[Rfam]
The record is a 45-nucleotide RNA sequence from Ornithorhynchus anatinus, which matches "Histone 3' UTR stem-loop" in Rfam.
The base pairs follow the family's consensus structure, which is taken from published work.
On this family, see Williams and Marzluff, Nucleic Acids Res 1995: "The sequence of the stem and flanking sequences at the 3' end of histone mRNA are critical determinants for the binding of the stem-loop binding protein".
Its family is annotated with mRNA 3'-end processing by stem-loop binding and cleavage in the Gene Ontology.
About the family: The mRNAs of metazoan histone genes lack a poly-A tail. 3' end processing occurs at a site between a highly conserved stem-loop (modelled by this family) and a purine rich region around 20 nts downstream (the histone downstream element, or HDE). The stem-loop is bound by a 31 kDa stem-loop binding protein (SLBP - also termed the histone hairpin binding protein, or HBP). Together with U7 snRNA binding of the HDE, SLBP binding nucleate s the formation of the processing complex. The histone 3' UTR stem-loop is also involved in nucleocytoplasmic transport of the mRNA, and in stability regulation and translation efficiency in the cytoplasm.
RNA sequence: CCAAAGGCUCUUUUCAGAGCCACCCAUAGUUUCUCAAAAAGAGCU
Numbered sequence: 001c002c003a004a005a006g007g008c009u010c011u012u013u014u015c016a017g018a019g020c021c022a023c024c025c026a027u028a029g030u031u032u033c034u035c036a037a038a039a040a041g042a043g044c045u
Stems, first nucleotide, its partner, number of pairs: 006021006